The record is a 63-nucleotide RNA sequence from Anguilla anguilla, which matches "mir-155 microRNA precursor family" in Rfam. The match comes from Rfam's covariance-model search (65 bits). The organism belongs to Anguilla, within Eukaryota. Rfam links the family to the GO terms miRNA-mediated post-transcriptional gene silencing and RISC complex.

RNA sequence: GGGUUAAUGCUAAUCGUGAUAGGGGUGGUUUUCUGAAGGACUCCUACCUGUUAGCAUUAGCCC
Numbered sequence: 001g002g003g004u005u006a007a008u009g010c011u012a013a014u015c016g017u018g019a020u021a022g023g024g025g026u027g028g029u030u031u032u033c034u035g036a037a038g039g040a041c042u043c044c045u046a047c048c049u050g051u052u053a054g055c056a057u058u059a060g061c062c063c
Stems, first nucleotide, its partner, number of pairs: 004060011020046004025041002